The record is a 74-nucleotide RNA from Telmatospirillum siberiense, which matches "tRNA" in Rfam. A search with the family's covariance model found it, with a score of 70 bits.

[Rfam]
RNA sequence: GGCCCCGUAGCUCAGUUGGAUAGAGCACUCGCCUUCUAAGCGAGUUGUCGCUGGUUCGAAUCCAGCCGGGGUCG
Numbered sequence: 001g002g003c004c005c006c007g008u009a010g011c012u013c014a015g016u017u018g019g020a021u022a023g024a025g026c027a028c029u030c031g032c033c034u035u036c037u038a039a040g041c042g043a044g045u046u047g048u049c050g051c052u053g054g055u056u057c058g059a060a061u062c063c064a065g066c067c068g069g070g071g072u073c074g
Stems, first nucleotide, its partner, number of pairs: 001073007010026004028044005050066005
The family's consensus secondary structure is taken from published work.
The family's RNA type in Rfam is transfer RNA.
The organism belongs to Telmatospirillum, within Bacteria.